[Rfam]
Nucleotides: 097
Base pairs, nucleotide, nucleotide: 002096004094005093006092007091008090009089010088
Number, partner (000 for none) and nucleotide at each position: 001000u002096a003000u004094g005093g006092g007091c008090a009089a010088g011000a012000a013000u014000g015000a016000u017000g018000a019000g020000u021000c022000g023000a024000u025000u026000a027000g028000a029000u030000g031000c032000g033000u034000g035000a036000g037000g038000g039000g040000a041000u042000u043000u044000a045000u046000u047000c048000c049000u050000c051000u052000a053000u054000g055000a056000g057000c058000a059000u060000a061000a062000c063000u064000u065000u066000u067000c068000g069000a070000g071000g072000c073000u074000u075000a076000u077000u078000g079000a080000u081000a082000u083000u084000c085000u086000g087000a088010c089009u090008u091007g092006c093005c094004c095000u096002u097000u

A member of the RNA family "Small nucleolar RNA Z266" from Cuscuta campestris, 97 nucleotides long. The literature on the family includes a 2003 paper in Nucleic Acids Res by Chen et al., "The high diversity of snoRNAs in plants: identification and comparative study of 120 snoRNA genes from Oryza sativa". Rfam links the family to the GO terms RNA processing and nucleolus. A search with the family's covariance model found it, with a score of 66 bits.